The record is a 111-nucleotide RNA sequence from Desulfallas thermosapovorans, which matches "TPP riboswitch aptamer (THI element)" in Rfam. About the family: Vitamin B(1) in its active form thiamin pyrophosphate (TPP) is an essential coenzyme that is synthesised by coupling of pyrimidine and thiazole moieties in bacteria. The previously detected thiamin-regulatory element, thi box was extended, resulting in a new, highly conserved RNA secondary structure, the THI element, which is widely distributed in eubacteria and also occurs in some archaea. Analysis of operon structures identified a large number of new candidate thiamin-regulated genes, mostly transporters, in various prokaryotic organisms. The THI element is a riboswitch that directly binds to TPP to regulate gene expression through a variety of mechanisms in archaea, bacteria and eukaryotes. through a variety of mechanisms in archaea, bacteria and eukaryotes. The family's consensus secondary structure is taken from published work. It scores 76 bits against the family's covariance model.
RNA sequence: UAGGCACACUGGGGGGGCUCCUGAAGCCGGGGCUGAGAGUAAAGCGGCAGCUUUUGACCCUUUGUACCUGAUCUGGCUAAUACCAGCGGAGGAAAGUGUAAAUGAUUUAAA
Numbered sequence: 001u002a003g004g005c006a007c008a009c010u011g012g013g014g015g016g017g018c019u020c021c022u023g024a025a026g027c028c029g030g031g032g033c034u035g036a037g038a039g040u041a042a043a044g045c046g047g048c049a050g051c052u053u054u055u056g057a058c059c060c061u062u063u064g065u066a067c068c069u070g071a072u073c074u075g076g077c078u079a080a081u082a083c084c085a086g087c088g089g090a091g092g093a094a095a096g097u098g099u100a101a102a103u104g105a106u107u108u109a110a111a
Base pairs, nucleotide, nucleotide: 006099007098008097009096010095011061012060013059014058016055017033018032019031020030021029041054042053043052044051067092068091069090073086074085075084076083